[Rfam]
RNA sequence: GAGUUAUUGUUGCAUGCAAGGUUAAGUUGUAGAGGUGGAGCCGAAGGGAAACCGAGUCUUAAUAGGGCGUUUAGUAUGUAGCAAUAGACCCGAAACGGGAUGAUCUAGCCAUGGGCAGGUUGAAGUUUGGGUAACACCAAAUGGAGGACCGAACCGACGUUCGUUGAAACGACCGCGGAUGACCUGUGGCUAGGGGUGAAAUUCCAAUCGAAUUCCGUGAUAGCUGGUU
Number, nucleotide and partner (000 for none) at each position: 001g000002a000003g000004u000005u086006a085007u084008u083009g082010u081011u080012g079013c078014a077015u076016g075017c074018a000019a000020g042021g041022u040023u039024a000025a000026g036027u035028u034029g000030u000031a000032g000033a000034g028035g027036u026037g000038g000039a023040g022041c021042c020043g000044a000045a000046g053047g052048g000049a000050a000051a000052c047053c046054g000055a000056g068057u067058c066059u065060u000061a000062a000063u000064a000065g059066g058067g057068c056069g000070u000071u000072u000073a000074g017075u016076a015077u014078g013079u012080a011081g010082c009083a008084a007085u006086a005087g000088a000089c227090c226091c000092g224093a000094a000095a000096c217097g216098g215099g214100a213101u212102g000103a000104u000105c193106u192107a191108g190109c189110c188111a187112u186113g185114g184115g183116c181117a000118g150119g149120u148121u147122g000123a000124a000125g142126u141127u140128u139129g138130g137131g000132u000133a000134a000135c000136a000137c130138c129139a128140a127141a126142u125143g000144g000145a000146g000147g121148a120149c119150c118151g000152a000153a000154c178155c177156g176157a000158c175159g174160u000161u172162c171163g000164u000165u000166g000167a000168a000169a000170c000171g162172a161173c000174c159175g158176c156177g155178g154179a000180u000181g116182a000183c115184c114185u113186g112187u111188g110189g109190c108191u107192a106193g105194g000195g205196g204197u000198g000199a000200a000201a000202u000203u000204c196205c195206a000207a000208u000209c000210g000211a000212a101213u100214u099215c098216c097217g096218u000219g000220a000221u000222a000223g000224c092225u000226g090227g089228u000229u000